[Rfam]
Source information: transfer-messenger RNA: a 368-nucleotide RNA from Sphingobacterium psychroaquaticum. Its family is annotated with RNA catabolic process in the Gene Ontology. The source organism's lineage runs through Bacteria, Sphingobacteriia, Sphingobacteriales, Sphingobacteriaceae and Sphingobacterium. The match comes from Rfam's covariance-model search (138 bits).
RNA sequence: GGGGUCGACUGGAUUUGACAGGAUAGCGAUGGUUAUGUAAGCAUGCAGUGCGUUGUAAGAAGAGCACUUAAAUCUGAACUUUCAACUUUACAACUGGCGAAGAAAACUACGCCUUAGCUGCUUAAGUUAGACUUAACAUAGCUAUUUGUCCCGUUAGAUCCUGUUCUUUGGUCUAACAUUCGGGGCAUCGAACAAUAGAACUGGUCGCGGUGAUUUUGCUAAGCCGAGGCGAGAAACAGCAAAUACGGAGUACGGUAUAGGUAAGCGACUCACCUUCCCUCUCUCGACAAUUAAAGAGAAGCUAAGCAUGUAGAAAGCGUAAAUCAUACUAUGUUUGGACGAGGGUUCGACUCCCUCCGGCUCCACAU
Number, nucleotide and partner (000 for none) at each position: 001g364002g363003g362004g361005u360006c359007g358008a000009c000010u000011g000012g000013a000014u000015u000016u000017g000018a000019c337020a336021g335022g000023a332024u331025a330026g329027c000028g000029a000030u326031g325032g324033u322034u321035a320036u319037g318038u317039a000040a000041g000042c310043a309044u308045g307046c306047a068048g067049u066050g065051c064052g000053u000054u084055g083056u000057a081058a080059g079060a000061a000062g000063a000064g051065c050066a049067c048068u047069u000070a000071a000072a000073u000074c000075u000076g000077a000078a000079c059080u058081u057082u000083c055084a054085a000086c000087u000088u000089u000090a000091c000092a000093a000094c000095u000096g000097g000098c000099g000100a000101a000102g000103a000104a000105a000106a000107c000108u000109a000110c000111g000112c000113c000114u000115u144116a143117g142118c141119u140120g139121c000122u000123u000124a000125a000126g000127u000128u000129a000130g000131a000132c000133u000134u000135a000136a000137c000138a000139u120140a119141g118142c117143u116144a115145u000146u000147u187148g186149u185150c184151c183152c182153g177154u176155u175156a174157g173158a172159u171160c170161c000162u000163g000164u199165u198166c000167u000168u195169u194170g160171g159172u158173c157174u156175a155176a154177c153178a000179u000180u000181c000182g152183g151184g150185g149186c148187a147188u000189c000190g000191a000192a000193c000194a169195a168196u000197a000198g165199a164200a000201c233202u232203g000204g230205u229206c228207g000208c226209g225210g000211u000212g000213a000214u000215u000216u000217u000218g000219c000220u248221a000222a000223g000224c000225c209226g208227a000228g206229g205230c204231g000232a202233g201234a000235a000236a000237c000238a000239g000240c000241a000242a000243a000244u000245a000246c000247g000248g220249a000250g000251u000252a000253c286254g285255g284256u000257a282258u000259a280260g279261g278262u000263a276264a275265g274266c000267g302268a000269c000270u299271c298272a000273c296274c265275u264276u263277c000278c261279c260280u259281c000282u257283c000284u255285c254286g253287a000288c000289a000290a000291u000292u000293a000294a000295a000296g273297a000298g271299a270300a000301g000302c267303u000304a000305a000306g046307c045308a044309u043310g042311u000312a000313g000314a000315a000316a000317g038318c037319g036320u035321a034322a033323a000324u032325c031326a030327u000328a000329c026330u025331a024332u023333g000334u000335u021336u020337g019338g000339a000340c000341g357342a356343g355344g354345g353346u000347u000348c000349g000350a000351c000352u000353c345354c344355c343356u342357c341358c007359g006360g005361c004362u003363c002364c001365a000366c000367a000368u000